[Rfam]
RNA: Small nucleolar RNA snoR8a
Organism: Theobroma cacao
RNA sequence: GGAGCUAGCGAUAAUUAUAAAAAUAAUUUCUUGUUCUAACUUGCUUAAUUUGGGCAUGACAAAUCUUUUAUUACAUUCAUAGAAUCUGAAUUACU
Dot-bracket structure: ..((.((....................................................................................))))